A member of the RNA family "mir-574 microRNA precursor family" from Cnephaeus nilssonii, 81 nucleotides long. Taxonomically the source falls in Cnephaeus (Eukaryota, Gnathostomata, Dipnotetrapodomorpha, Boreoeutheria). Rfam links the family to the GO terms miRNA-mediated post-transcriptional gene silencing and RISC complex. For this family Rfam cites "MicroRNA identity and abundance in porcine skeletal muscles determined by deep sequencing" (Nielsen et al., Anim Genet, 2010). Its Rfam clan is "mir-574 microRNA precursor clan". The match comes from Rfam's covariance-model search (83 bits).
RNA sequence: AGGCCUGAAGAGAGAGGCAGGAUCUGAUCCGCAGCCUCUGUGGCAGCUAUGGAUCACCUGUUACCUCUCUCUUUCUCCCAG
Numbered sequence: 001a002g003g004c005c006u007g008a009a010g011a012g013a014g015a016g017g018c019a020g021g022a023u024c025u026g027a028u029c030c031g032c033a034g035c036c037u038c039u040g041u042g043g044c045a046g047c048u049a050u051g052g053a054u055c056a057c058c059u060g061u062u063a064c065c066u067c068u069c070u071c072u073u074u075c076u077c078c079c080a081g
Stems, first nucleotide, its partner, number of pairs: 008073010019062002022059001025056005033048003